The family of this 72-nucleotide RNA from Trypanosoma brucei is "Trypanosomatid snoRNA TB11Cs2H1". It is one of the family's seed sequences. The literature on the family includes a 2005 paper in RNA by Liang et al., "A genome-wide analysis of C/D and H/ACA-like small nucleolar RNAs in Trypanosoma brucei reveals a trypanosome-specific pattern of rRNA modification". Gene Ontology terms of the family: nucleolus and RNA processing. The organism belongs to Trypanozoon, within Eukaryota.

Nucleotides: 072
Stems, first nucleotide, its partner, number of pairs: 004065006017052004021047003024043004
Number, partner (000 for none) and nucleotide at each position: 001000a002000a003000a004065g005064c006063u007062c008061u009060u010000u011000u012000a013000u014000g015000u016000a017052g018051u019050g020049u021047g022046c023045g024043u025042a026041c027040c028000a029000c030000g031000a032000a033000a034000g035000u036000a037000g038000c039000a040027g041026g042025u043024a044000c045023u046022g047021c048000g049020a050019c051018a052017c053000g054000a055000a056000a057000c058000u059000g060009g061008a062007g063006a064005g065004c066000g067000a068000g069000a070000c071000u072000c